[Rfam]
RNA: tRNA
Organism: Saccharomyces cerevisiae
RNA sequence: GGCGCCGUGGCGCAGUGGAAGCGCGCAGGGCUCAUAACCCUGAUGUCCUCGGAUCGAAACCGAGCGGCGCUA
Numbered sequence: 001g002g003c004g005c006c007g008u009g010g011c012g013c014a015g016u017g018g019a020a021g022c023g024c025g026c027a028g029g030g031c032u033c034a035u036a037a038c039c040c041u042g043a044u045g046u047c048c049u050c051g052g053a054u055c056g057a058a059a060c061c062g063a064g065c066g067g068c069g070c071u072a
Stems, first nucleotide, its partner, number of pairs: 001071007010024004026042005048064005